RNA sequence: AUACUCUGGUUUCUCUUCAGAUCGCAUAAAUCUUUCGCCUUUUACUAAAGAUUUCCGUGGAGGGGAACAACCAUGAGUUACAUGCAAUUUUUGAGGCUUGGUUUUCGCCAGGC
Numbered sequence: 001a002u003a004c005u006c007u008g009g010u011u012u013c014u015c016u017u018c019a020g021a022u023c024g025c026a027u028a029a030a031u032c033u034u035u036c037g038c039c040u041u042u043u044a045c046u047a048a049a050g051a052u053u054u055c056c057g058u059g060g061a062g063g064g065g066a067a068c069a070a071c072c073a074u075g076a077g078u079u080a081c082a083u084g085c086a087a088u089u090u091u092u093g094a095g096g097c098u099u100g101g102u103u104u105u106c107g108c109c110a111g112g113c
Stems, first nucleotide, its partner, number of pairs: 003078004009068011028054008095113001097112006
U5 spliceosomal RNA: a 113-nucleotide RNA sequence from Hymenochirus boettgeri. The family has 180 seed sequences and 28,527 matches in Rfam 15.1. Rfam describes the family as follows. U5 RNA is a component of both types of known spliceosome.